[Rfam]
The family of this 156-nucleotide RNA sequence from Cuscuta campestris is "U1 spliceosomal RNA". Rfam describes the family as follows. U1 is a small nuclear RNA (snRNA) component of the spliceosome (involved in pre-mRNA splicing). By type it is a spliceosomal small nuclear RNA. The match comes from Rfam's covariance-model search (106 bits). Taxonomically the source falls in Cuscuta sect. Cleistogrammica (Eukaryota, Streptophyta, Streptophytina, Cuscuta subgen. Grammica).

RNA sequence: GCACUUACAGGGGUCAAUGGGCGAUCAAGAAGGCCCAUGGCCUAGGCUGAUGACUUCCAUUGCACGUUGGAAGGGUGUCCGCCUAAGUUUUACCCAAGUGGUGGAACCUACGUCAUUAUUUGUGGCAGUGGGGGCUUGCGUUCGCGCGGCCCCUUU
Numbered sequence: 001g002c003a004c005u006u007a008c009a010g011g012g013g014u015c016a017a018u019g020g021g022c023g024a025u026c027a028a029g030a031a032g033g034c035c036c037a038u039g040g041c042c043u044a045g046g047c048u049g050a051u052g053a054c055u056u057c058c059a060u061u062g063c064a065c066g067u068u069g070g071a072a073g074g075g076u077g078u079c080c081g082c083c084u085a086a087g088u089u090u091u092a093c094c095c096a097a098g099u100g101g102u103g104g105a106a107c108c109u110a111c112g113u114c115a116u117u118a119u120u121u122g123u124g125g126c127a128g129u130g131g132g133g134g135c136u137u138g139c140g141u142u143c144g145c146g147c148g149g150c151c152c153c154u155u156u
Stems, first nucleotide, its partner, number of pairs: 010111001011043006018037005044084003048081001050078003054074003057070002086109002089105003093101002130155005137148004